This 129-nucleotide sequence from Brassica oleracea belongs to the Rfam family "MIR9555 microRNA precursor family". A search with the family's covariance model found it, with a score of 125 bits.

RNA sequence: UUAUAUAGGCGUAUGUAAUUGUGGGUUCUAAGCUUUACGGGAAACCCAAUCGAAAGUUUCUUAUUUAAAAAUCUUUCGGUUGGAUUUCCCGUAAAGCUUAGAACCCCACAAUUAUAUACGUCUAUAUAA
Numbered sequence: 001u002u003a004u005a006u007a008g009g010c011g012u013a014u015g016u017a018a019u020u021g022u023g024g025g026u027u028c029u030a031a032g033c034u035u036u037a038c039g040g041g042a043a044a045c046c047c048a049a050u051c052g053a054a055a056g057u058u059u060c061u062u063a064u065u066u067a068a069a070a071a072u073c074u075u076u077c078g079g080u081u082g083g084a085u086u087u088c089c090c091g092u093a094a095a096g097c098u099u100a101g102a103a104c105c106c107c108a109c110a111a112u113u114a115u116a117u118a119c120g121u122c123u124a125u126a127u128a129a
Stems, first nucleotide, its partner, number of pairs: 001129025026103015070087002074083002